[Rfam]
RNA: Purine riboswitch aptamer
Organism: Bacillus manliponensis
RNA sequence: UAAAAUUAAACAAAAGCAUCUCGUAUAAUCGUAGGGAUAUGGCCUACAAGUUUCUACCAAGCUACCGUAAAUGGCUUGACUACGAGAAUAAAUGAAGGUGGA
Numbered sequence: 001u002a003a004a005a006u007u008a009a010a011c012a013a014a015a016g017c018a019u020c021u022c023g024u025a026u027a028a029u030c031g032u033a034g035g036g037a038u039a040u041g042g043c044c045u046a047c048a049a050g051u052u053u054c055u056a057c058c059a060a061g062c063u064a065c066c067g068u069a070a071a072u073g074g075c076u077u078g079a080c081u082a083c084g085a086g087a088a089u090a091a092a093u094g095a096a097g098g099u100g101g102a
Stems, first nucleotide, its partner, number of pairs: 019087007029049001031047005058078007